[Rfam]
RNA sequence: CCAGCACUUUCAUAGCUCCCCACUUAGCCAGUGGGGCCAGGAUUUGGUAGCUGGUGCUGACAGAAAACCCUUGAUUACAUCCUUGCCCUAAUGCUGUACCAGUGGCAGCUAUCUCUCUAGGGAACAGAU
Numbered sequence: 001c002c003a004g005c006a007c008u009u010u011c012a013u014a015g016c017u018c019c020c021c022a023c024u025u026a027g028c029c030a031g032u033g034g035g036g037c038c039a040g041g042a043u044u045u046g047g048u049a050g051c052u053g054g055u056g057c058u059g060a061c062a063g064a065a066a067a068c069c070c071u072u073g074a075u076u077a078c079a080u081c082c083u084u085g086c087c088c089u090a091a092u093g094c095u096g097u098a099c100c101a102g103u104g105g106c107a108g109c110u111a112u113c114u115c116u117c118u119a120g121g122g123a124a125c126a127g128a129u
Stems, first nucleotide, its partner, number of pairs: 003058006013046003017042003023035003069122002071119001073117002079112002083108005088102002
Shown here is a 129-nucleotide RNA from Nannospalax galili, a member of the family "Small nucleolar RNA SNORA30/SNORA37 family". The organism belongs to Nannospalax, within Eukaryota. Pairs were carried over by alignment from the consensus structure, which was predicted with RNAfold. It scores 95 bits against the family's covariance model. By type it is an H/ACA-box small nucleolar RNA. The members of this family belong to the H/ACA class of snoRNAs that guide the sites of modification of uridines to pseudouridines.